[Rfam]
RNA sequence: AAGCGAAGGUCCCAGCGGAGGGGUAUGAGACUCAAAAUGUGAGACCUCUCUAACACCAUAUGAUACCUUCGUAGACUGUGAUGCUCGGCCGAUUUGUAGGAUGCCCAAACAGUGCUAAUUUGAUUUUUGGAGCGUCUGGAAACCUUGGCUACAUCUGA
Numbered sequence: 001a002a003g004c005g006a007a008g009g010u011c012c013c014a015g016c017g018g019a020g021g022g023g024u025a026u027g028a029g030a031c032u033c034a035a036a037a038u039g040u041g042a043g044a045c046c047u048c049u050c051u052a053a054c055a056c057c058a059u060a061u062g063a064u065a066c067c068u069u070c071g072u073a074g075a076c077u078g079u080g081a082u083g084c085u086c087g088g089c090c091g092a093u094u095u096g097u098a099g100g101a102u103g104c105c106c107a108a109a110c111a112g113u114g115c116u117a118a119u120u121u122g123a124u125u126u127u128u129g130g131a132g133c134g135u136c137u138g139g140a141a142a143c144c145u146u147g148g149c150u151a152c153a154u155c156u157g158a
Base pairs, nucleotide, nucleotide: 003072004071005070006069007068008067009066011020013018027048031043032042033041034040088149089148090147091146092145100136101135103133104132105130106129107128108127109126
RNA: Small nucleolar RNA snoR145
Organism: Nelumbo nucifera